[Rfam]
RNA sequence: CGAGCAGGUCACCUUGUCGCUGCCUUUUCAAUUUUCUUUGGAAAGGGAGAGGAAAGUCUGGACACCAUAGUGCGGCAUAGCGGGUAACACCCGUCGCUCGCCGUAGGCGAACAGGACAAGUGCAACAGAAAGAAUGUACAGGUAAUGCUGUAGUGAAAUCAGGUAAACUCUAUGCGGUGAAACGCCAUGUAUAUCAGUGUUUGAGGGCUGCACGCCCGAGCUGAAGGGUAGGCGGAUGGAGUUCGACAGUAAUGUCGAAACUAGAUAAAUGACAAGGAAGUUUUCUUUGGGAAGCUUUACAGAAUCCGGCUUAUGGCCUGCUUUUUUA
Number, nucleotide and partner (000 for none) at each position: 001c000002g323003a322004g321005c320006a319007g318008g317009u316010c315011a314012c277013c276014u275015u274016g273017u272018c271019g000020c049021u048022g000023c046024c045025u044026u043027u042028u041029c040030a039031a038032u000033u000034u000035u000036c000037u000038u031039u030040g029041g028042a027043a026044a025045g024046g023047g000048a021049g020050a000051g000052g000053a000054a312055a311056g310057u000058c309059u308060g307061g306062a305063c179064a178065c177066c176067a000068u000069a000070g213071u212072g211073c210074g000075g175076c174077a173078u172079a171080g094081c093082g092083g091084g090085u000086a000087a000088c000089a000090c084091c083092c082093g081094u080095c114096g112097c000098u110099c109100g108101c107102c000103g000104u000105a000106g000107g101108c100109g099110a098111a000112c096113a000114g095115g170116a169117c000118a000119a000120g168121u167122g164123c163124a000125a000126c000127a000128g000129a000130a000131a000132g000133a000134a000135u000136g000137u152138a151139c150140a149141g148142g000143u000144a000145a000146u000147g000148c141149u140150g139151u138152a137153g000154u000155g000156a000157a000158a000159u000160c000161a000162g000163g123164u122165a000166a000167a121168c120169u116170c115171u079172a078173u077174g076175c075176g066177g065178u064179g063180a000181a000182a000183c234184g233185c232186c231187a000188u000189g000190u000191a000192u000193a000194u224195c223196a222197g221198u220199g000200u000201u000202u000203g000204a000205g217206g216207g215208c214209u000210g073211c072212a071213c070214g208215c207216c206217c205218g000219a000220g198221c197222u196223g195224a194225a000226g000227g000228g000229u000230a000231g186232g185233c184234g183235g000236a000237u000238g000239g000240a000241g000242u259243u258244c257245g256246a255247c254248a253249g000250u000251a000252a000253u248254g247255u246256c245257g244258a243259a242260a000261c000262u000263a000264g000265a000266u000267a000268a000269a000270u000271g018272a017273c016274a015275a014276g013277g012278a000279a000280g000281u000282u000283u000284u000285c000286u000287u000288u000289g000290g000291g000292a000293a000294g000295c000296u000297u000298u000299a000300c000301a000302g000303a000304a000305u062306c061307c060308g059309g058310c056311u055312u054313a000314u011315g010316g009317c008318c007319u006320g005321c004322u003323u002324u000325u000326u000327u000328a000
Shown here is a 328-nucleotide RNA from Euzebyella marina, a member of the family "Bacterial RNase P class A".